[Rfam]
RNA sequence: AGCUUUGUGCAGUGGCAGUAUUGUAGCCAAUGAGGUUCAUCCGAGGCAUGAUUAUUGCUAAUUGAAAACUUUUCCUAAAAAACACUAAAAUUCAUGAAAAUAUAUUUCUCAUUUUUGACAAAAUUUAGAUU
Numbered sequence: 001a002g003c004u005u006u007g008u009g010c011a012g013u014g015g016c017a018g019u020a021u022u023g024u025a026g027c028c029a030a031u032g033a034g035g036u037u038c039a040u041c042c043g044a045g046g047c048a049u050g051a052u053u054a055u056u057g058c059u060a061a062u063u064g065a066a067a068a069c070u071u072u073u074c075c076u077a078a079a080a081a082a083c084a085c086u087a088a089a090a091u092u093c094a095u096g097a098a099a100a101u102a103u104a105u106u107u108c109u110c111a112u113u114u115u116u117g118a119c120a121a122a123a124u125u126u127a128g129a130u131u
Stems, first nucleotide, its partner, number of pairs: 020052005026047003034042002084109001087106002090103002094101002122131003

The family of this 131-nucleotide sequence from Gulo gulo is "U4 spliceosomal RNA". Taxonomically the source falls in Gulo (Eukaryota, Vertebrata, Tetrapoda, Carnivora). On this family, see Zwieb, Nucleic Acids Res 1997: "The uRNA database". It scores 92 bits against the family's covariance model. The family's consensus secondary structure is taken from published work.